[Rfam]
Rfam assigns this 87-nucleotide RNA from Aphanothece hegewaldii to the family "Photosynthesis regulatory RNA1". The family has 13 seed sequences and 92 matches in Rfam 15.1. The source organism's lineage runs through Bacteria, Cyanophyceae, Aphanothecaceae, Aphanothece and Aphanothece hegewaldii.
RNA sequence: CCAAAACGCUUAAUGCUUUGGUAUCUCCCGAUUGGAUUUGCUUGAGUUCUCCUACAACAGCAGCCUCGGUUGAUUACCGGGGUUUUU
Numbered sequence: 001c002c003a004a005a006a007c008g009c010u011u012a013a014u015g016c017u018u019u020g021g022u023a024u025c026u027c028c029c030g031a032u033u034g035g036a037u038u039u040g041c042u043u044g045a046g047u048u049c050u051c052c053u054a055c056a057a058c059a060g061c062a063g064c065c066u067c068g069g070u071u072g073a074u075u076a077c078c079g080g081g082g083u084u085u086u087u
Base pairs, nucleotide, nucleotide: 059083064082065081066080067079068078069077070076